Overview: The family of this 86-nucleotide sequence from Solanum lycopersicum is "MIR8024 microRNA precursor family". The family's consensus secondary structure was predicted with RNAalifold.
[Rfam]
RNA sequence: UUGGAGGAUUUGAAGACUUGAACUUGGAGACUUGGAGGAUUUGAAGACCUUAAAUUUUAUGCUUGGAGGAUUUGAAGACUUCUACA
Numbered sequence: 001u002u003g004g005a006g007g008a009u010u011u012g013a014a015g016a017c018u019u020g021a022a023c024u025u026g027g028a029g030a031c032u033u034g035g036a037g038g039a040u041u042u043g044a045a046g047a048c049c050u051u052a053a054a055u056u057u058u059a060u061g062c063u064u065g066g067a068g069g070a071u072u073u074g075a076a077g078a079c080u081u082c083u084a085c086a
Stems, first nucleotide, its partner, number of pairs: 001084001003082004009076006017068003021064001025059004032053004037048001